[Rfam]
RNA sequence: AGCUGGGAGAAAAAAAAAAAAAAAAGAUUGAGCCGGACGGUUCGGAAGGAACCGGCCGGUUCGU
Numbered sequence: 001a002g003c004u005g006g007g008a009g010a011a012a013a014a015a016a017a018a019a020a021a022a023a024a025a026g027a028u029u030g031a032g033c034c035g036g037a038c039g040g041u042u043c044g045g046a047a048g049g050a051a052c053c054g055g056c057c058g059g060u061u062c063g064u
Stems, first nucleotide, its partner, number of pairs: 032060005039053005

Shown here is a 64-nucleotide sequence, a member of the family "DnaX ribosomal frameshifting element". For this family Rfam cites "Structural probing and mutagenic analysis of the stem-loop required for Escherichia coli dnaX ribosomal frameshifting: programmed efficiency of 50%" (Larsen et al., J Mol Biol, 1997). The base pairs follow the family's consensus structure, which is taken from published work. The match comes from Rfam's covariance-model search (36 bits).